[Rfam]
RNA: Histone 3' UTR stem-loop
RNA sequence: CUAACGGCUCUUUUCAGAGCCACCCCACUGAUGCUUUGGCAGAGUG
Numbered sequence: 001c002u003a004a005c006g007g008c009u010c011u012u013u014u015c016a017g018a019g020c021c022a023c024c025c026c027a028c029u030g031a032u033g034c035u036u037u038g039g040c041a042g043a044g045u046g
Stems, first nucleotide, its partner, number of pairs: 006021006
Dot-bracket structure: .....((((((....)))))).........................